[Rfam]
RNA sequence: AAUUUCGAGCAGUCGCGGCCGGCCUUGAGCCGGCUGAGGAAAGUCCACGCACGCACGGGCUGCGAUGCCCGUAGUGAUCGUAUUCAGCCCAAUAAGCUGGAGGAGGCCCCAGGCCUCACGGCAGAGAAAGCGCUAAAGCCUAGCCAUGCGUGAAUAUCUUGAAAGUGCCACAGUGACGGAGCAAGCCGGGAAACCGGUUUGGUGGAACGAGGUAAACCCUGCGAGCGUGUAACCCAAAAUUUGGUAGGGGCGUCUCAACUUAGGUAAAUGAACCAAAAGUUGGACUACAUCAUGUAGAGAUAGAUGGCUGCUGAAACCAGCCGCGGCCGGCGGUUGGUGGAACAGAACGUGGCUUAUAGAA
Numbered sequence: 001a002a003u004u005u006c007g008a009g010c011a012g013u014c015g016c017g018g019c020c021g022g023c024c025u026u027g028a029g030c031c032g033g034c035u036g037a038g039g040a041a042a043g044u045c046c047a048c049g050c051a052c053g054c055a056c057g058g059g060c061u062g063c064g065a066u067g068c069c070c071g072u073a074g075u076g077a078u079c080g081u082a083u084u085c086a087g088c089c090c091a092a093u094a095a096g097c098u099g100g101a102g103g104a105g106g107c108c109c110c111a112g113g114c115c116u117c118a119c120g121g122c123a124g125a126g127a128a129a130g131c132g133c134u135a136a137a138g139c140c141u142a143g144c145c146a147u148g149c150g151u152g153a154a155u156a157u158c159u160u161g162a163a164a165g166u167g168c169c170a171c172a173g174u175g176a177c178g179g180a181g182c183a184a185g186c187c188g189g190g191a192a193a194c195c196g197g198u199u200u201g202g203u204g205g206a207a208c209g210a211g212g213u214a215a216a217c218c219c220u221g222c223g224a225g226c227g228u229g230u231a232a233c234c235c236a237a238a239a240u241u242u243g244g245u246a247g248g249g250g251c252g253u254c255u256c257a258a259c260u261u262a263g264g265u266a267a268a269u270g271a272a273c274c275a276a277a278a279g280u281u282g283g284a285c286u287a288c289a290u291c292a293u294g295u296a297g298a299g300a301u302a303g304a305u306g307g308c309u310g311c312u313g314a315a316a317c318c319a320g321c322c323g324c325g326g327c328c329g330g331c332g333g334u335u336g337g338u339g340g341a342a343c344a345g346a347a348c349g350u351g352g353c354u355u356a357u358a359g360a361a
Stems, first nucleotide, its partner, number of pairs: 004361003007357001008312007016036006041355003045352005050229005055072006078224005083101006102119001103117006120219002123159003130151004138144002165217002167213003182201008233249003253284002256282005285297005316338009
RNA: Bacterial RNase P class B